[Rfam]
The record is a 33-nucleotide sequence from Gossypium australe, which matches "L31-Coriobacteria ribosomal protein leader" in Rfam.
The literature on the family includes a 2020 paper in BMC Microbiol by Eckert and Weinberg, "Discovery of 20 novel ribosomal leader candidates in bacteria and archaea".
It is annotated as a cis-regulatory leader.
The family has 75 seed sequences and 105 matches in Rfam 15.1.
It scores 36 bits against the family's covariance model.
RNA sequence: GAUUUGGUCGGAAACCAAAUCGGCUUUAAGGAG
Numbered sequence: 001g002a003u004u005u006g007g008u009c010g011g012a013a014a015c016c017a018a019a020u021c022g023g024c025u026u027u028a029a030g031g032a033g
Stems, first nucleotide, its partner, number of pairs: 001021008